[Rfam]
RNA sequence: GAUAGAGGUACGAAGACUAAGAACGCCGCGUCGUGCGGCACCGUCUUCAUGACCGACGUCGUGUCGG
Numbered sequence: 001g002a003u004a005g006a007g008g009u010a011c012g013a014a015g016a017c018u019a020a021g022a023a024c025g026c027c028g029c030g031u032c033g034u035g036c037g038g039c040a041c042c043g044u045c046u047u048c049a050u051g052a053c054c055g056a057c058g059u060c061g062u063g064u065c066g067g
Stems, first nucleotide, its partner, number of pairs: 012048006025039005053067005
RNA: Bacillaceae-1 RNA